[Rfam]
RNA sequence: UGAUGUCUGUUCCUCCUAUUGCCUUCAGACCUGACACUGGGAUGUUAGGUCAUCAUAAAUUAAAAUUUUAUUUUCUUCACUCAGAGAAUAUUAGGAUAAUGGGGUUAUUUGUUUAUUUUCUGAAAUAUGCAGAAUCAAACAGAA
Numbered sequence: 001u002g003a004u005g006u007c008u009g010u011u012c013c014u015c016c017u018a019u020u021g022c023c024u025u026c027a028g029a030c031c032u033g034a035c036a037c038u039g040g041g042a043u044g045u046u047a048g049g050u051c052a053u054c055a056u057a058a059a060u061u062a063a064a065a066u067u068u069u070a071u072u073u074u075c076u077u078c079a080c081u082c083a084g085a086g087a088a089u090a091u092u093a094g095g096a097u098a099a100u101g102g103g104g105u106u107a108u109u110u111g112u113u114u115a116u117u118u119u120c121u122g123a124a125a126u127a128u129g130c131a132g133a134a135u136c137a138a139a140c141a142g143a144a
Base pairs, nucleotide, nucleotide: 001055002054003053004052005051007049008048014042015041016040017039018038020036021035023033070135071134072133073132074131081123082122083121084120085119086118087117088116089115090114094110095109096108097107098106

About this RNA
This 144-nucleotide RNA sequence from Phyllostomus discolor belongs to the Rfam family "Small nucleolar RNA SNORA79". The family has 25 seed sequences and 944 matches in Rfam 15.1. About the family: ACA65 (SNORA79) is a member of the H/ACA class of snoRNAs that guide the sites of modification of uridines to pseudouridines. This snoRNA was identified by computational screening and its expression in mouse experimentally verified by Northern blot and primer extension analysis. A search with the family's covariance model found it, with a score of 131 bits. A reference for the family is Schattner et al. (2006), "A computational screen for mammalian pseudouridylation guide H/ACA RNAs", RNA.